[Rfam]
RNA sequence: ACAGUAACUAAUACUGCGCUCCACCGUAUUGGCGGUAAAAAAAGGAGGAACCGUAGCUCGCGGGUCAGCAUUGUGGAGACGUGCUGAGAAUGCCUCAUAUCCUUUGUGUCGGUAUGAGGUGAGGCAGGAAUCCGGAGGGAGAACUGUCAGAGCAAGUCAAUGUCG
Number, nucleotide and partner (000 for none) at each position: 001a000002c000003a000004g000005u000006a000007a000008c032009u031010a030011a029012u028013a000014c000015u000016g027017c026018g025019c000020u000021c000022c000023a000024c000025c018026g017027u016028a012029u011030u010031g009032g008033c000034g000035g000036u000037a000038a000039a000040a000041a000042a000043a000044g000045g000046a000047g000048g000049a000050a000051c063052c062053g061054u060055a000056g153057c152058u151059c150060g054061c053062g052063g051064g000065u087066c086067a085068g084069c083070a082071u081072u000073g080074u079075g000076g000077a000078g000079a074080c073081g071082u070083g069084c068085u067086g066087a065088g000089a000090a000091u000092g120093c119094c118095u117096c116097a115098u114099a113100u112101c000102c000103u000104u000105u000106g000107u000108g000109u000110c000111g000112g100113u099114a098115u097116g096117a095118g094119g093120u092121g000122a000123g148124g147125c146126a145127g144128g000129a000130a000131u140132c139133c138134g000135g000136a000137g000138g133139g132140a131141g000142a000143a000144c127145u126146g125147u124148c123149a000150g059151a058152g057153c056154a000155a000156g000157u000158c000159a000160a000161u000162g000163u000164c000165g000
A member of the RNA family "malK-I RNA", 165 nucleotides long. Rfam's curators put it in the seed alignment. Pairs were carried over by alignment from the consensus structure, which is taken from published work.